Nucleotides: 074
Base pairs, nucleotide, nucleotide: 013043014042019074020073022071023070024069025068026041027040028039047063048062049061050060051059052058053057
Number, partner (000 for none) and nucleotide at each position: 001000a002000a003000c004000u005000g006000u007000c008000a009000u010000a011000a012000u013043g014042g015000c016000c017000a018000u019074a020073g021000g022071a023070g024069a025068a026041g027040c028039a029000c030000u031000c032000a033000c034000a035000u036000c037000a038000g039028u040027g041026c042014c043013c044000u045000a046000u047063c048062a049061g050060a051059u052058u053057c054000a055000a056000u057053g058052a059051a060050u061049c062048u063047g064000u065000g066000a067000a068025u069024u070023c071022u072000g073020c074019u